Nucleotides: 074
Stems, first nucleotide, its partner, number of pairs: 002072005009065007017057001019055003024051004029047003
Number, partner (000 for none) and nucleotide at each position: 001000a002072u003071u004070c005069u006068a007000a008000c009065c010064a011063c012062c013061u014060g015059a016000a017057g018000a019055u020054u021053u022000g023000u024051c025050u026049c027048a028000a029047c030046c031045u032000g033000g034000u035000a036000a037000u038000a039000a040000u041000u042000a043000a044000u045031a046030g047029g048027u049026g050025a051024g052000c053021a054020a055019a056000g057017u058000u059015u060014c061013a062012g063011g064010u065009g066000c067000c068006u069005a070004g071003a072002g073000u074000u
This 74-nucleotide RNA sequence from Trichonephila clavata belongs to the Rfam family "mir-87 microRNA precursor family". Gene Ontology terms of the family: RISC complex and miRNA-mediated post-transcriptional gene silencing. For this family Rfam cites "Temporal regulation of microRNA expression in Drosophila melanogaster mediated by hormonal signals and broad-Complex gene activity" (Sempere et al., Dev Biol, 2003). A search with the family's covariance model found it, with a score of 51 bits.